Rfam assigns this 74-nucleotide sequence from Neisseria bacilliformis to the family "tRNA". From the family's description: Transfer RNA (tRNA) molecules are approximately 80 nucleotides in length. Lineage of the source: Bacteria > Pseudomonadati > Betaproteobacteria > Neisseriales > Neisseria bacilliformis. By type it is a transfer RNA. Pairs were carried over by alignment from the consensus structure, which is taken from published work.

[Rfam]
RNA sequence: UGGGGAUUCGCCAAGCUGGUUAAGGCACCGGAUUUUGAUUCCGGCAUGCGUAGGUUCGAAUCCUACAUCCCCAG
Numbered sequence: 001u002g003g004g005g006a007u008u009c010g011c012c013a014a015g016c017u018g019g020u021u022a023a024g025g026c027a028c029c030g031g032a033u034u035u036u037g038a039u040u041c042c043g044g045c046a047u048g049c050g051u052a053g054g055u056u057c058g059a060a061u062c063c064u065a066c067a068u069c070c071c072c073a074g
Base pairs, nucleotide, nucleotide: 001073002072003071004070005069006068007067010026011025012024028044029043030042031041032040050066051065052064053063054062